[Rfam]
Nucleotides: 144
Stems, first nucleotide, its partner, number of pairs: 004105001006103003009098007023084007046072004053067004116141011
Number, partner (000 for none) and nucleotide at each position: 001000u002000u003000a004105u005000a006103g007102g008101u009098u010097a011096u012095g013094u014093u015092a016000u017000g018000u019000u020000c021000a022000a023084u024083a025082c026081u027080c028079a029078u030000u031000u032000u033000c034000u035000g036000c037000u038000u039000a040000c041000u042000c043000u044000c045000c046072u047071g048070c049069u050000a051000c052000u053067c054066g055065u056064g057000a058000c059000u060000u061000c062000g063000u064056u065055g066054c067053g068000c069049g070048g071047u072046a073000u074000g075000u076000c077000u078029g079028u080027g081026g082025g083024u084023a085000a086000a087000a088000u089000a090000g091000u092015u093014a094013g095012c096011a097010u098009a099000u100000a101008a102007c103006c104000u105004a106000a107000g108000c109000a110000a111000g112000a113000c114000a115000a116141a117140a118139a119138a120137c121136c122135c123134g124133c125132g126131c127000a128000a129000c130000u131126g132125c133124g134123c135122g136121g137120g138119u139118u140117u141116u142000u143000u144000u